[Rfam]
Rfam assigns this 68-nucleotide RNA sequence from Thermotalea metallivorans to the family "Fluoride riboswitch aptamer (crcB RNA motif)". Pairs were carried over by alignment from the consensus structure, which is taken from published work.
RNA sequence: UUUAUCCUAGGUGAUGGAGCUCACCUUUAACUAUUGCAAGGAAGGCAAUUGAUGGCUCCUGCUAUAAC
Number, nucleotide and partner (000 for none) at each position: 001u000002u000003u000004a000005u000006c000007c000008u000009a000010g025011g024012u023013g022014a000015u000016g059017g058018a057019g056020c055021u054022c013023a012024c011025c010026u000027u000028u000029a000030a000031c000032u000033a049034u048035u047036g046037c000038a000039a000040g000041g000042a000043a000044g000045g000046c036047a035048a034049u033050u000051g000052a000053u000054g021055g020056c019057u018058c017059c016060u000061g000062c000063u000064a000065u000066a000067a000068c000